[Rfam]
RNA sequence: GAGAAAUGAGGAUACUAAACUAAAACUUGAUUCUCUGUGAUGACUUAAGAUCCAACUCUGAUCUCCUGAAGGCA
Numbered sequence: 001g002a003g004a005a006a007u008g009a010g011g012a013u014a015c016u017a018a019a020c021u022a023a024a025a026c027u028u029g030a031u032u033c034u035c036u037g038u039g040a041u042g043a044c045u046u047a048a049g050a051u052c053c054a055a056c057u058c059u060g061a062u063c064u065c066c067u068g069a070a071g072g073c074a
Stems, first nucleotide, its partner, number of pairs: 001065004